[Rfam]
RNA sequence: GGCGAUAAAUGGUCAUCGAAAUAAGCCUAUCGGACCCGGGGGCGGUACCCGGCGCCUCCACCACAAGCCAUCUGCAAGGAUGGCUCCACCGCUUGGGAUGGCUUGCGGCGGGGGCGAAAUAGGAUAGACGAGGGUGUAAAGGGUGUUCUUUUGCCCGGCAUGAUACCGCCGUUAUCGGGUCAAACCUAUAGUUGCCAACGACAACUAUGCUCCGGUGGCCGUCGCCGCGUAA
Numbered sequence: 001g002g003c004g005a006u007a008a009a010u011g012g013u014c015a016u017c018g019a020a021a022u023a024a025g026c027c028u029a030u031c032g033g034a035c036c037c038g039g040g041g042g043c044g045g046u047a048c049c050c051g052g053c054g055c056c057u058c059c060a061c062c063a064c065a066a067g068c069c070a071u072c073u074g075c076a077a078g079g080a081u082g083g084c085u086c087c088a089c090c091g092c093u094u095g096g097g098a099u100g101g102c103u104u105g106c107g108g109c110g111g112g113g114g115c116g117a118a119a120u121a122g123g124a125u126a127g128a129c130g131a132g133g134g135u136g137u138a139a140a141g142g143g144u145g146u147u148c149u150u151u152u153g154c155c156c157g158g159c160a161u162g163a164u165a166c167c168g169c170c171g172u173u174a175u176c177g178g179g180u181c182a183a184a185c186c187u188a189u190a191g192u193u194g195c196c197a198a199c200g201a202c203a204a205c206u207a208u209g210c211u212c213c214g215g216u217g218g219c220c221g222u223c224g225c226c227g228c229g230u231a232a
Base pairs, nucleotide, nucleotide: 001155002154003153004152005151014145015144016143017142026134027133028132030131031130032129036052037051038050039049040048053116054115055114056113057112058111059110156171157170158169159168
RNA: permuted transfer-messenger RNA
Organism: Rhodoblastus acidophilus